[Rfam]
RNA sequence: ACAAAAAAACCGCUAAGCACAAGGCUUCGCGGUGAAUAGUCUUGGGGGCCGCUUGCGCGGACCCCCUCAUGGGAGAGGAGAAACCGGACGAAGAGCUUAUGGGGAAACGUAAGUCUUCUCCGCGG
Numbered sequence: 001a002c003a004a005a006a007a008a009a010c011c012g013c014u015a016a017g018c019a020c021a022a023g024g025c026u027u028c029g030c031g032g033u034g035a036a037u038a039g040u041c042u043u044g045g046g047g048g049c050c051g052c053u054u055g056c057g058c059g060g061a062c063c064c065c066c067u068c069a070u071g072g073g074a075g076a077g078g079a080g081a082a083a084c085c086g087g088a089c090g091a092a093g094a095g096c097u098u099a100u101g102g103g104g105a106a107a108c109g110u111a112a113g114u115c116u117u118c119u120c121c122g123c124g125g
Stems, first nucleotide, its partner, number of pairs: 011031003015027004041073003046063002049060003085122004090118004095114005
ylbH leader: a 125-nucleotide RNA from Paenibacillus flagellatus. By type it is a cis-regulatory leader. The match comes from Rfam's covariance-model search (71 bits). About the family: This family is a putative regulatory RNA structure that is found upstream of the ylbH gene in B. subtilis and related low GC Gram-positive bacteria.